[Rfam]
RNA sequence: CUUCCUGAGGAGCGCUGCGACGGAACGGACUGAAGCCUGUGGGCUUUUCAGUGCCAUCCGCUAGGCUCAGGAUCUUCUUUAGUCUCAACGGCGCUCAUCAUUC
Numbered sequence: 001c002u003u004c005c006u007g008a009g010g011a012g013c014g015c016u017g018c019g020a021c022g023g024a025a026c027g028g029a030c031u032g033a034a035g036c037c038u039g040u041g042g043g044c045u046u047u048u049c050a051g052u053g054c055c056a057u058c059c060g061c062u063a064g065g066c067u068c069a070g071g072a073u074c075u076u077c078u079u080u081a082g083u084c085u086c087a088a089c090g091g092c093g094c095u096c097a098u099c100a101u102u103c
Base pairs, nucleotide, nucleotide: 003072004071005070006069007068008067021060022059023058024057